[Rfam]
Shown here is a 112-nucleotide RNA sequence from Nakamurella multipartita, a member of the family "SAM (S-adenosyl methionine) riboswitch aptamer". The organism belongs to Nakamurella multipartita, within Bacteria.
RNA sequence: GGUCAUGAGUCCCAGCAUCGAGCUCCGGCUAGCUGGGCGGCAACCCUCCUCCGCGGUGGGGUGCUCCGGAUGAAGACCUGGCGGGGCCGAACGGCUCCCGCAAGCGCGGGCU
Numbered sequence: 001g002g003u004c005a006u007g008a009g010u011c012c013c014a015g016c017a018u019c020g021a022g023c024u025c026c027g028g029c030u031a032g033c034u035g036g037g038c039g040g041c042a043a044c045c046c047u048c049c050u051c052c053g054c055g056g057u058g059g060g061g062u063g064c065u066c067c068g069g070a071u072g073a074a075g076a077c078c079u080g081g082c083g084g085g086g087c088c089g090a091a092c093g094g095c096u097c098c099c100g101c102a103a104g105c106g107c108g109g110g111c112u
Stems, first nucleotide, its partner, number of pairs: 001078004009038001011037006021030002039065003044061003048056002081101005086095003